[Rfam]
This 81-nucleotide sequence from Microcaecilia unicolor belongs to the Rfam family "mir-199 microRNA precursor family". Rfam describes the family as follows. This family consists of the microRNA (miRNA) precursor mir-199 which appears to be specific to humans. Animal miRNAs are transcribed as ~70nt precursors and subsequently processed by the Dicer enzyme to give a ~22nt product. In this case the mature sequence comes from the 3' arm of the precursor. The extents of the hairpin precursors are not generally known and are estimated based on hairpin prediction. The organism belongs to Microcaecilia, within Eukaryota. Gene Ontology terms of the family: RISC complex and miRNA-mediated post-transcriptional gene silencing.
RNA sequence: GCCCCAUCUGCCCAGUGUUCAGACUACCUGUUCAGGUAGCUAGAAGUUGCACAGUAGUCUACACACUGGUUAGGUUGGGCU
Numbered sequence: 001g002c003c004c005c006a007u008c009u010g011c012c013c014a015g016u017g018u019u020c021a022g023a024c025u026a027c028c029u030g031u032u033c034a035g036g037u038a039g040c041u042a043g044a045a046g047u048u049g050c051a052c053a054g055u056a057g058u059c060u061a062c063a064c065a066c067u068g069g070u071u072a073g074g075u076u077g078g079g080c081u
Stems, first nucleotide, its partner, number of pairs: 012069007021060006028054004033049002